[Rfam]
RNA sequence: CGGAAAGAGCGGAGUAUCGCUCCCGGGAGUUUUCCCGGGGGAGGAAAGUCCGAACACCGCAGGGCACGAUGCCGCGUAACCCCCUGCACCCGGGUAGGAGUGCAGCGCGGGAUACACGCGGGCGGCGACGCCGUGAGGCGUCCCGACGGACAGUGCCACAGAAAACAAACCGCCUGUGCGCAUCCCGGCCGAUCCCGGUCGGGCCGGCGCACCGGCAAGGGUGAAAAGGUGGGGUAAGAGCCCACCGCUCGUUCGCGCAAGCGACGAGGCACGGCAAACCCCAUCGGGUGCAAGGCCAAAUAGGGGACGUUCGAAGUGGCCCGCUUCAGUUCCGCCCACGCGGAACGCGUCCCGGGUUCUGGCCGCGCAGAUAAAUGAUACUCUCCUCCGGGCCACAAGCCCGGAGCAGACAGAAUUCGGCUUACAGCUCUUUCCGGGGC
Number, nucleotide and partner (000 for none) at each position: 001c436002g435003g434004a433005a432006a431007g430008a429009g428010c427011g425012g383013a382014g381015u380016a379017u378018c377019g000020c041021u040022c039023c038024c037025g036026g035027g034028a033029g000030u000031u000032u000033u028034c027035c026036c025037g024038g023039g022040g021041g020042a000043g000044g000045a000046a423047a422048g421049u000050c420051c419052g418053a417054a416055c290056a289057c288058c287059g000060c000061a000062g000063g337064g336065c000066a000067c286068g285069a284070u283071g282072c121073c120074g119075c118076g117077u000078a000079a000080c000081c000082c000083c000084c000085u000086g000087c000088a000089c000090c000091c000092g000093g000094g000095u000096a000097g000098g000099a000100g000101u000102g000103c000104a000105g000106c000107g000108c000109g000110g000111g000112a000113u000114a000115c000116a000117c076118g075119c074120g073121g072122g147123c145124g144125g143126c000127g000128a000129c000130g000131c000132c000133g000134u000135g000136a000137g000138g000139c000140g000141u000142c000143c125144c124145g123146a000147c122148g281149g280150a000151c000152a000153g279154u278155g275156c274157c273158a000159c000160a000161g000162a000163a000164a000165a000166c000167a000168a000169a000170c220171c219172g216173c215174c214175u000176g212177u211178g210179c209180g208181c000182a000183u000184c000185c000186c000187g000188g000189c000190c000191g000192a000193u000194c000195c000196c000197g000198g000199u000200c000201g000202g000203g000204c000205c000206g000207g000208c180209g179210c178211a177212c176213c000214g174215g173216c172217a000218a000219g171220g170221g000222u000223g000224a000225a000226a000227a000228g246229g245230u244231g243232g242233g241234g000235u000236a000237a000238g000239a000240g000241c233242c232243c231244a230245c229246c228247g270248c268249u267250c266251g265252u264253u000254c263255g262256c261257g000258c000259a000260a000261g256262c255263g254264a252265c251266g250267a249268g248269g000270c247271a000272c000273g157274g156275c155276a000277a000278a154279c153280c149281c148282c071283a070284u069285c068286g067287g058288g057289u056290g055291c000292a000293a000294g364295g363296c362297c361298a000299a000300a000301u000302a000303g000304g353305g352306g351307a350308c349309g348310u000311u000312c000313g000314a000315a000316g000317u000318g000319g000320c000321c000322c000323g000324c000325u000326u000327c000328a000329g346330u345331u344332c343333c342334g000335c000336c064337c063338a000339c000340g000341c000342g333343g332344a331345a330346c329347g000348c309349g308350u307351c306352c305353c304354g000355g000356g000357u000358u000359c000360u000361g297362g296363c295364c294365g000366c000367g000368c000369a000370g000371a000372u000373a000374a000375a000376u000377g018378a017379u016380a015381c014382u013383c012384u000385c000386c000387u000388c000389c000390g000391g000392g000393c000394c000395a000396c000397a000398a000399g000400c000401c000402c000403g000404g000405a000406g000407c000408a000409g000410a000411c000412a000413g000414a000415a000416u054417u053418c052419g051420g050421c048422u047423u046424a000425c011426a000427g010428c009429u008430c007431u006432u005433u004434c003435c002436g001437g000438g000439g000440c000